[Rfam]
RNA sequence: UGUACUGUUCCUGAUUAUUAUGUUUUUAUCUCAUUCAUAGAGAAUGGAU
Dot-bracket structure: ....((((((...............................))))))..
The record is a 49-nucleotide sequence from Saruma henryi, which matches "Plastid-rpoB 5UTR RNA" in Rfam. Rfam classes the family as a cis-regulatory element. The source organism's lineage runs through Eukaryota, Embryophyta, Euphyllophyta, Piperales and Saruma. Pairs were carried over by alignment from the consensus structure, which was predicted with LocARNA. The sequence is in the family's curated seed alignment.